Description
A member of the RNA family "Small nucleolar RNA Z161/Z228" from Asparagus officinalis, 85 nucleotides long. Its family is annotated with nucleolus and RNA processing in the Gene Ontology.
RNA sequence: AAACCAAGUGAUGAGUUGUAUUUCUCACGAUGGUCGUCUGACACCUUCUGGUGUUUAUGUUGACAUCAAUCCAACUCUGAUGGUU
Number, nucleotide and partner (000 for none) at each position: 001a085002a084003a000004c082005c000006a000007a000008g000009u000010g000011a000012u000013g000014a000015g000016u000017u000018g000019u000020a000021u000022u000023u000024c000025u000026c000027a000028c000029g000030a000031u000032g000033g000034u000035c000036g000037u000038c000039u000040g000041a000042c053043a052044c051045c000046u000047u000048c000049u000050g000051g044052u043053g042054u000055u000056u000057a000058u000059g000060u000061u000062g000063a000064c000065a000066u000067c000068a000069a000070u000071c000072c000073a000074a000075c000076u000077c000078u000079g000080a000081u000082g004083g000084u002085u001
A search with the family's covariance model found it, with a score of 50 bits. For this family Rfam cites "The high diversity of snoRNAs in plants: identification and comparative study of 120 snoRNA genes from Oryza sativa" (Chen et al., Nucleic Acids Res, 2003). By type it is a C/D-box small nucleolar RNA.